This 76-nucleotide sequence from Pantoea sp. Eser belongs to the Rfam family "Fluoride riboswitch aptamer (crcB RNA motif)".

RNA sequence: UUCGCUUAAGGUGAUGGCGUGCCACCUUUCCCAACCGCCGGCGGACUUUACCCCGGCUGAUGACGCCUGACACUCG
Numbered sequence: 001u002u003c004g005c006u007u008a009a010g011g012u013g014a015u016g017g018c019g020u021g022c023c024a025c026c027u028u029u030c031c032c033a034a035c036c037g038c039c040g041g042c043g044g045a046c047u048u049u050a051c052c053c054c055g056g057c058u059g060a061u062g063a064c065g066c067c068u069g070a071c072a073c074u075c076g
Base pairs, nucleotide, nucleotide: 010026011025012024013023016067017066018065019064020063037057038056039055040054
Notes: For this family Rfam cites "An excited state underlies gene regulation of a transcriptional riboswitch" (Zhao et al., Nat Chem Biol, 2017). The base pairs follow the family's consensus structure, which is taken from published work. Rfam 15.1 lists 2,293 matches to the family in 1,982 species.